[Rfam]
The record is an 84-nucleotide RNA from Kribbella voronezhensis, which matches "ZMP/ZTP riboswitch aptamer (pfl RNA motif)" in Rfam.
RNA sequence: CGCGAGAGUCGUGACUGGCGAGGGUGGAGGACCACCGGGGAGCGACCUGAUUCCGUGUGAGCGUCGACCGCCUGGGCGCUUCCU
Numbered sequence: 001c002g003c004g005a006g007a008g009u010c011g012u013g014a015c016u017g018g019c020g021a022g023g024g025u026g027g028a029g030g031a032c033c034a035c036c037g038g039g040g041a042g043c044g045a046c047c048u049g050a051u052u053c054c055g056u057g058u059g060a061g062c063g064u065c066g067a068c069c070g071c072c073u074g075g076g077c078g079c080u081u082c083c084u
Stems, first nucleotide, its partner, number of pairs: 006048001008046005015039002017072004024035004061079005
The match comes from Rfam's covariance-model search (52 bits).